[Rfam]
RNA sequence: GAAAUCAUGAGUACCAAUAAGUAUUAUCAUUAUACGAACUAAACCACCCAAAGGUGCUGUGGUAAAGAGUCAUGGUAUUGAGCGUUUGGGAGAAUCUAUGCCAUGAGUAUAGCAGGU
Numbered sequence: 001g002a003a004a005u006c007a008u009g010a011g012u013a014c015c016a017a018u019a020a021g022u023a024u025u026a027u028c029a030u031u032a033u034a035c036g037a038a039c040u041a042a043a044c045c046a047c048c049c050a051a052a053g054g055u056g057c058u059g060u061g062g063u064a065a066a067g068a069g070u071c072a073u074g075g076u077a078u079u080g081a082g083c084g085u086u087u088g089g090g091a092g093a094a095u096c097u098a099u100g101c102c103a104u105g106a107g108u109a110u111a112g113c114a115g116g117u
Stems, first nucleotide, its partner, number of pairs: 001006001010040003014036001017033004045116001047090006053079002056076003060072004096112005
Group II catalytic intron D1-D4-2: a 117-nucleotide RNA sequence from Marinifilum sp. N1E240. From the family's description: Group II introns are found in rRNA, tRNA and mRNA of organelles in fungi, plants and protists, and also in mRNA in bacteria. For this family Rfam cites "The ins and outs of group II introns" (Bonen and Vogel, Trends Genet, 2001).